[Rfam]
RNA sequence: AGUUGCAAAUUUCGUGAUGGCAUUGAAAGGUAUCCUUGCCACCCGAAAUUUGUGGUUGA
Numbered sequence: 001a002g003u004u005g006c007a008a009a010u011u012u013c014g015u016g017a018u019g020g021c022a023u024u025g026a027a028a029g030g031u032a033u034c035c036u037u038g039c040c041a042c043c044c045g046a047a048a049u050u051u052g053u054g055g056u057u058g059a
Base pairs, nucleotide, nucleotide: 001057002056003055004054005053006052007051008050009049010048012046013045014044016043018041019040020039021038022037025033

A member of the RNA family "mir-7583 microRNA precursor family" from Caenorhabditis nigoni, 59 nucleotides long.
Its family is annotated with RISC complex and miRNA-mediated post-transcriptional gene silencing in the Gene Ontology.
The family's consensus secondary structure was predicted with RNAalifold.
The match comes from Rfam's covariance-model search (73 bits).